[Rfam]
RNA sequence: GUCAACCACCCCGCCCUGAAGGGCGGAGCUUGUCGUAAGCUCCACGGUUGACCAGCCUUAGUCUCUUCACGAGACUCCGUUCGGUCGGUGCAGACCUUGGGGUGCUUCUCCAGCCCCAAGUCUUCUGGGCUUCGCACUAAACGCCAGCUGAGGGUAGUGCGAGCCGUGUGCGAGGCGUUAUCGACCCGACCGAACUUUGGCGAGGAGAGACUUCC
Numbered sequence: 001g002u003c004a005a006c007c008a009c010c011c012c013g014c015c016c017u018g019a020a021g022g023g024c025g026g027a028g029c030u031u032g033u034c035g036u037a038a039g040c041u042c043c044a045c046g047g048u049u050g051a052c053c054a055g056c057c058u059u060a061g062u063c064u065c066u067u068c069a070c071g072a073g074a075c076u077c078c079g080u081u082c083g084g085u086c087g088g089u090g091c092a093g094a095c096c097u098u099g100g101g102g103u104g105c106u107u108c109u110c111c112a113g114c115c116c117c118a119a120g121u122c123u124u125c126u127g128g129g130c131u132u133c134g135c136a137c138u139a140a141a142c143g144c145c146a147g148c149u150g151a152g153g154g155u156a157g158u159g160c161g162a163g164c165c166g167u168g169u170g171c172g173a174g175g176c177g178u179u180a181u182c183g184a185c186c187c188g189a190c191c192g193a194a195c196u197u198u199g200g201c202g203a204g205g206a207g208a209g210a211c212u213u214c215c
Stems, first nucleotide, its partner, number of pairs: 001052007010028001012025002015022002029039003055201003060076005079195010092126002096120008104211001106209006129176009141167002143164002147160002
RNA: HNH endonuclease-associated RNA and ORF (HEARO) RNA
Organism: Sulfobacillus sp. hq2